RNA sequence: CGAUGGGCUUCACCCAUCGCUGAUAUAUGGCGCCCCUUCGGGGCU
Number, nucleotide and partner (000 for none) at each position: 001c019002g018003a017004u016005g015006g014007g013008c000009u000010u000011c000012a000013c007014c006015c005016a004017u003018c002019g001020c000021u000022g000023a000024u000025a000026u000027a000028u000029g000030g000031c000032g044033c043034c042035c041036c040037u000038u000039c000040g036041g035042g034043g033044c032045u000
A member of the RNA family "Acido-Lenti-1 RNA" from Adhaeribacter aerolatus, 45 nucleotides long. Taxonomically the source falls in Adhaeribacter (Bacteria, Bacteroidota, Cytophagia, Cytophagales). By type it is a small RNA.